This 81-nucleotide sequence from Cricetulus griseus belongs to the Rfam family "mir-105 microRNA precursor family".
It scores 70 bits against the family's covariance model.
The base pairs follow the family's consensus structure, which was predicted with RNAalifold.

[Rfam]
RNA sequence: UGUGCAUUGUGGUCAAAUGCUCAGACUCUUGUGGUAGCUGUUUAUGCACCAUCCAUGUUUGCGCAUGUGCUAUGGUAUCUA
Numbered sequence: 001u002g003u004g005c006a007u008u009g010u011g012g013u014c015a016a017a018u019g020c021u022c023a024g025a026c027u028c029u030u031g032u033g034g035u036a037g038c039u040g041u042u043u044a045u046g047c048a049c050c051a052u053c054c055a056u057g058u059u060u061g062c063g064c065a066u067g068u069g070c071u072a073u074g075g076u077a078u079c080u081a
Base pairs, nucleotide, nucleotide: 004078006076007075008074009073010072011071012070014069015068017066018065019064020063022061023060024059025058026057027055034052035051037049039048040047041046
A reference for the family is Ahn et al. (2010), "MicroRNA transcriptome in the newborn mouse ovaries determined by massive parallel sequencing", Mol Hum Reprod.